[Rfam]
RNA sequence: ACGCGAAGGUCCCAGCAGAGAGGUAGGAACUCUACAUUGAGACCUCUCUAACACUAAAAAUUAUCCUUCGUAUAUUGAGAUCAUUAUCAGCUGUUUCGUAGGAUGCCCAAACAUAUAUUAUGAUUUUUGGAGUAUCUAGAACCCUCAGCUACAUUUAA
Dot-bracket structure: ..(((((((.(.(....).).....((..(((......)))....)).................)))))))..................((((........((.(((((((..............))))).)).)).........)))).........
RNA: Small nucleolar RNA snoR145